[Rfam]
The record is a 125-nucleotide sequence from Brassica carinata, which matches "MIR9563 microRNA precursor family" in Rfam.
The match comes from Rfam's covariance-model search (92 bits).
NCBI's taxonomy places the organism under Eukaryota, Embryophyta, eudicotyledons, rosids, Brassica.
The base pairs follow the family's consensus structure, which was predicted with RNAalifold.

RNA sequence: AGAAGUUAAGAAAUAGUUUCUUUACUUUUAACUAAAAAUAGCUAAGAACCGGUUCUUAAAUAAUGAUUUUAAGAACCGGUUCUUAGCUUUUUUAGUUAAAAGUUAAGAAACAGUUUUUAACUUCU
Numbered sequence: 001a002g003a004a005g006u007u008a009a010g011a012a013a014u015a016g017u018u019u020c021u022u023u024a025c026u027u028u029u030a031a032c033u034a035a036a037a038a039u040a041g042c043u044a045a046g047a048a049c050c051g052g053u054u055c056u057u058a059a060a061u062a063a064u065g066a067u068u069u070u071a072a073g074a075a076c077c078g079g080u081u082c083u084u085a086g087c088u089u090u091u092u093u094a095g096u097u098a099a100a101a102g103u104u105a106a107g108a109a110a111c112a113g114u115u116u117u118u119a120a121c122u123u124c125u
Base pairs, nucleotide, nucleotide: 001125002124003123004122005121006120007119008118009117010116011115012114014112016111017110018109019108020107021106022105024103025102026101027100028099029098030097031096032095033094034093035092036091037090038089040088042086043085044084045083046082047081048080